Notes: Rfam assigns this 38-nucleotide RNA from Gossypium stocksii to the family "Plastid psbT antisense RNA". Rfam's curators write: Plastid-psbT-asRNA is an antisense RNA (asRNA) motif reported in Plastids It has been shown that psbT expression is controlled by two antisense RNAs originated from psbN transcription by the nuclear-encoded polymerase (NEP), in which the short antisense RNA hybridizes to psbT CDS, thereby stabilizing psbT transcript while blocking its translation during photooxidative stress. Pairs were carried over by alignment from the consensus structure, which was predicted with LocARNA. A reference for the family is Richter et al. (2023), "Retrograde signaling in plants: A critical review focusing on the GUN pathway and beyond", Plant Commun. The match comes from Rfam's covariance-model search (49 bits).
RNA sequence: GUAGUUGGAUCUCUAUAUUUUUGGAAUGCUCCAAAUUC
Number, nucleotide and partner (000 for none) at each position: 001g000002u000003a018004g000005u000006u015007g014008g013009a000010u000011c000012u000013c008014u007015a006016u000017a000018u003019u000020u035021u034022u033023g032024g031025a030026a000027u000028g000029c000030u025031c024032c023033a022034a021035a020036u000037u000038c000